RNA sequence: GGGCUUAUGAUGAUAAUUUAAUAUAUCUUAGCGGAUUUCAGUGAGAUAUCAACGUCAAUGAUCUGAUUGUUACACACACUGAAGCCC
Numbered sequence: 001g002g003g004c005u006u007a008u009g010a011u012g013a014u015a016a017u018u019u020a021a022u023a024u025a026u027c028u029u030a031g032c033g034g035a036u037u038u039c040a041g042u043g044a045g046a047u048a049u050c051a052a053c054g055u056c057a058a059u060g061a062u063c064u065g066a067u068u069g070u071u072a073c074a075c076a077c078a079c080u081g082a083a084g085c086c087c
Stems, first nucleotide, its partner, number of pairs: 001087005